Background:
Rfam assigns this 237-nucleotide RNA sequence from Stenomitos frigidus to the family "Group II catalytic intron D1-D4-6". The source organism's lineage runs through Bacteria, Bacillati, Cyanobacteriota, Cyanophyceae and Stenomitos frigidus. From the family's description: Group II introns are found in rRNA, tRNA and mRNA of organelles in fungi, plants and protists, and also in mRNA in bacteria. A reference for the family is Chu et al. (2001), "Control of branch-site choice by a group II intron", EMBO J.
RNA sequence: AAAGUCCCCAUACUGGAAGCCCUGGCAAGGCACCAGGAACUGAGUGUUGCGCUGGUCUCGGUAACGAAGCCAGCGAAGCGUACACAAGGAGGUGAUGGGCCACAAUGCGAAAGCGUGAAGGGAAUGAGCCUCGAUAUCAGAAUCAAUUGUGGAUGCCGACGCCGUUAGUGGAGCGGAAGGCAACACCAAAGGAGCCAAUAGCCAUGGCUCCCAAGGAUCCACCGGGGUCUGAGACCG
Numbered sequence: 001a002a003a004g005u006c007c008c009c010a011u012a013c014u015g016g017a018a019g020c021c022c023u024g025g026c027a028a029g030g031c032a033c034c035a036g037g038a039a040c041u042g043a044g045u046g047u048u049g050c051g052c053u054g055g056u057c058u059c060g061g062u063a064a065c066g067a068a069g070c071c072a073g074c075g076a077a078g079c080g081u082a083c084a085c086a087a088g089g090a091g092g093u094g095a096u097g098g099g100c101c102a103c104a105a106u107g108c109g110a111a112a113g114c115g116u117g118a119a120g121g122g123a124a125u126g127a128g129c130c131u132c133g134a135u136a137u138c139a140g141a142a143u144c145a146a147u148u149g150u151g152g153a154u155g156c157c158g159a160c161g162c163c164g165u166u167a168g169u170g171g172a173g174c175g176g177a178a179g180g181c182a183a184c185a186c187c188a189a190a191g192g193a194g195c196c197a198a199u200a201g202c203c204a205u206g207g208c209u210c211c212c213a214a215g216g217a218u219c220c221a222c223c224g225g226g227g228u229c230u231g232a233g234a235c236c237g
Stems, first nucleotide, its partner, number of pairs: 013036004019031003025203001040088002044085004048080002050075007058067003125231001126229001128228006149222006155181003160175003186216002191211006